This 165-nucleotide RNA sequence from Faecalicoccus pleomorphus belongs to the Rfam family "Lysine riboswitch aptamer". The match comes from Rfam's covariance-model search (87 bits). Lineage of the source: Bacteria > Bacillota > Erysipelotrichia > Erysipelotrichaceae > Faecalicoccus. Pairs were carried over by alignment from the consensus structure, which is taken from published work.
[Rfam]
RNA sequence: UUUCAUGAUAGAGGCGCAAAGACGAUGAAAAAAUGGAAAGCCGGCGGGCAUUUGAUCCAUUUUGGGGGCAACUUUGCCGAACUGUUUUUUCAGGCAUGAACAAACGGUGGGCCGAUAAAGAAUAUUUAUCGGACUGUCUACGGAUGUAGGAGGGCUAUCGCACGA
Numbered sequence: 001u002u003u004c005a006u007g008a009u010a011g012a013g014g015c016g017c018a019a020a021g022a023c024g025a026u027g028a029a030a031a032a033a034u035g036g037a038a039a040g041c042c043g044g045c046g047g048g049c050a051u052u053u054g055a056u057c058c059a060u061u062u063u064g065g066g067g068g069c070a071a072c073u074u075u076g077c078c079g080a081a082c083u084g085u086u087u088u089u090u091c092a093g094g095c096a097u098g099a100a101c102a103a104a105c106g107g108u109g110g111g112c113c114g115a116u117a118a119a120g121a122a123u124a125u126u127u128a129u130c131g132g133a134c135u136g137u138c139u140a141c142g143g144a145u146g147u148a149g150g151a152g153g154g155c156u157a158u159c160g161c162a163c164g165a
Stems, first nucleotide, its partner, number of pairs: 006160006016077006024069001030063008081108007089100004109135002112132008137150005